The family of this 91-nucleotide RNA from Ameiurus melas is "mir-7 microRNA precursor family". The match comes from Rfam's covariance-model search (72 bits). For this family Rfam cites "Identification of novel genes coding for small expressed RNAs" (Lagos-Quintana et al., Science, 2001). From the family's description: This family represents the microRNA (miRNA) precursor mir-7. Rfam 15.1 lists 2,589 matches to the family in 797 species.
[Rfam]
RNA sequence: AGUUCUGGAUAUUGUGGAAGACUAGUGAUUUUGUUGUUGAAAAUAUAUCAAUGGCAACAACAAGUCAUAGUCUACCUCAGUGACCAGGACA
Numbered sequence: 001a002g003u004u005c006u007g008g009a010u011a012u013u014g015u016g017g018a019a020g021a022c023u024a025g026u027g028a029u030u031u032u033g034u035u036g037u038u039g040a041a042a043a044u045a046u047a048u049c050a051a052u053g054g055c056a057a058c059a060a061c062a063a064g065u066c067a068u069a070g071u072c073u074a075c076c077u078c079a080g081u082g083a084c085c086a087g088g089a090c091a
Base pairs, nucleotide, nucleotide: 002090003089004088005087006086007085008084010082011081012080013079014078016076017075019073020072021071022070023069025068026067027066028065029064030063031062033061034060035059036058037057038056